[Rfam]
RNA sequence: UACAAUAGCUUCUAGGGUUCCGAUUUAAGAUGAAAUUCUUGAAUGGCUGGUCCGAGAGAAGCAAGCUACUGACAGAGUUUUUGGUAAGGAACAUCCUGCCCUUAAUUAAGUAGCUACACGGCGGGAUAAAAGCCCGGGAGGU
Number, nucleotide and partner (000 for none) at each position: 001u000002a000003c000004a000005a000006u000007a000008g062009c061010u060011u059012c058013u000014a000015g053016g052017g000018u000019u000020c050021c049022g047023a044024u043025u042026u041027a040028a039029g038030a037031u000032g000033a000034a000035a000036u000037u030038c029039u028040u027041g026042a025043a024044u023045g000046g000047c022048u000049g021050g020051u000052c016053c015054g000055a000056g000057a000058g012059a011060a010061g009062c008063a000064a115065g114066c113067u112068a111069c110070u109071g000072a000073c000074a000075g000076a000077g000078u000079u000080u000081u000082u000083g000084g000085u000086a000087a000088g000089g000090a000091a000092c000093a000094u000095c000096c000097u000098g000099c000100c000101c000102u000103u000104a000105a000106u000107u000108a000109a070110g069111u068112a067113g066114c065115u064116a000117c137118a000119c140120g000121g000122c000123g135124g134125g133126a000127u000128a000129a000130a000131a000132g000133c125134c124135c123136g000137g117138g000139a000140g119141g000142u000

The family of this 142-nucleotide RNA sequence from Xenococcus sp. PCC 7305 is "Guanidine-I riboswitch aptamer". NCBI's taxonomy places the organism under Bacteria, Bacillati, Cyanobacteriota, Cyanophyceae, Xenococcus. Its family is annotated with regulation of gene expression in the Gene Ontology.